Description
Rfam assigns this 275-nucleotide RNA from Nannospalax galili to the family "Mason-Pfizer monkey virus packaging signal". The organism belongs to Nannospalax, within Eukaryota. Its family is annotated with viral genome packaging in the Gene Ontology. This family represents a group of sequences that are related to the Mason-Pfizer monkey virus (MPMV) packaging signal. Pairs were carried over by alignment from the consensus structure, which was predicted with PFOLD. A search with the family's covariance model found it, with a score of 156 bits. It is annotated as a cis-regulatory element.
[Rfam]
RNA sequence: UGGCGCCCAACGUUAGGGCUGGAUACGGAGGAUCCAGUGAGGGAAGACGAUGUCCCAAAGGAACGUUCCACAAUAAUUUUUCACUCUGGACUCGACGUGGGAACCUGCCUCGGCUACAACCAAAAGUAAGUACAGACGUCUGAUUAUGGGACAAGAAUUAAGCAGGCAUGAACUUUAUGUUAAGCAGUUACAAGAAGCCUUGAAGACAUGAGGAGUAAAGGUUCAAAUAGAGGAUCUAUUAAGAUUCUUUGAAUUCAUUAAGGAAAUGUGUCCUU
Number, nucleotide and partner (000 for none) at each position: 001u000002g000003g000004c000005g000006c031007c030008c000009a000010a000011c000012g026013u025014u000015a000016g000017g000018g000019c000020u000021g000022g000023a000024u000025a013026c012027g000028g000029a000030g007031g006032a000033u000034c000035c000036a053037g048038u047039g000040a000041g000042g000043g000044a000045a000046g000047a038048c037049g000050a000051u000052g000053u036054c000055c000056c000057a000058a000059a000060g000061g000062a000063a000064c000065g000066u000067u000068c000069c000070a000071c000072a000073a000074u000075a000076a000077u000078u000079u000080u000081u000082c000083a127084c126085u125086c000087u122088g000089g000090a000091c000092u118093c000094g000095a000096c112097g111098u000099g109100g108101g000102a000103a000104c000105c000106u000107g000108c100109c099110u000111c097112g096113g000114c000115u000116a000117c000118a092119a000120c000121c000122a087123a000124a000125a085126g084127u083128a000129a000130g000131u000132a000133c000134a000135g152136a000137c000138g000139u150140c149141u148142g147143a000144u000145u000146a000147u142148g141149g140150g139151a000152c135153a000154a000155g000156a000157a000158u000159u202160a201161a200162g198163c197164a000165g000166g000167c000168a000169u000170g000171a000172a000173c000174u000175u000176u000177a000178u000179g000180u000181u000182a000183a000184g000185c000186a000187g000188u000189u000190a000191c000192a000193a000194g000195a000196a000197g163198c162199c000200u161201u160202g159203a000204a000205g000206a000207c000208a000209u251210g250211a249212g248213g247214a246215g245216u244217a000218a000219a237220g236221g235222u234223u233224c232225a000226a000227a000228u000229a000230g000231a000232g224233g223234a222235u221236c220237u219238a000239u000240u000241a000242a000243g000244a216245u215246u214247c213248u212249u211250u210251g209252a000253a000254u000255u000256c000257a000258u000259u000260a275261a274262g273263g272264a271265a000266a000267u000268g000269u000270g000271u264272c263273c262274u261275u260